[Rfam]
RNA sequence: GACUCUCCGUGUUCACUGUUGGGCCUCUAUGUUUUUAUAUUAUACCAUAAGGCACGCGGUGAAUGCCAAGAGAU
Numbered sequence: 001g002a003c004u005c006u007c008c009g010u011g012u013u014c015a016c017u018g019u020u021g022g023g024c025c026u027c028u029a030u031g032u033u034u035u036u037a038u039a040u041u042a043u044a045c046c047a048u049a050a051g052g053c054a055c056g057c058g059g060u061g062a063a064u065g066c067c068a069a070g071a072g073a074u
Stems, first nucleotide, its partner, number of pairs: 003072004009066008018057002024052003028049004
Rfam assigns this 74-nucleotide RNA from Stegodyphus mimosarum to the family "mir-124 microRNA precursor family". The base pairs follow the family's consensus structure, which was predicted with PFOLD. For this family Rfam cites "Identification of tissue-specific microRNAs from mouse" (Lagos-Quintana et al., Curr Biol, 2002). The match comes from Rfam's covariance-model search (62 bits).